[Rfam]
RNA: mir-126 microRNA precursor family
Organism: Anguilla anguilla
RNA sequence: CCGCAGCACAUUAUUACUCACGGUACGAGUUUGAGAAGCUCAGCGCGUACCAAAAGUAAUAAUGAGCCGUGA
Numbered sequence: 001c002c003g004c005a006g007c008a009c010a011u012u013a014u015u016a017c018u019c020a021c022g023g024u025a026c027g028a029g030u031u032u033g034a035g036a037a038g039c040u041c042a043g044c045g046c047g048u049a050c051c052a053a054a055a056g057u058a059a060u061a062a063u064g065a066g067c068c069g070u071g072a
Stems, first nucleotide, its partner, number of pairs: 009064010022051006029044001